[Rfam]
RNA sequence: CUCUUAUCAAGAGAGGUGGAGGGAAAAAGGCCCUAUGAAACCCGGCAACCGGUGCUAUGCACCAUGGUGCCAAUUCCUGCAGUUAUAAUCUGCAAGAUAAGGG
Numbered sequence: 001c002u003c004u005u006a007u008c009a010a011g012a013g014a015g016g017u018g019g020a021g022g023g024a025a026a027a028a029g030g031c032c033c034u035a036u037g038a039a040a041c042c043c044g045g046c047a048a049c050c051g052g053u054g055c056u057a058u059g060c061a062c063c064a065u066g067g068u069g070c071c072a073a074u075u076c077c078u079g080c081a082g083u084u085a086u087a088a089u090c091u092g093c094a095a096g097a098u099a100a101g102g103g
Stems, first nucleotide, its partner, number of pairs: 001103008013043001015042003021033003028078003044071004049067002051063004075095001080092003084088001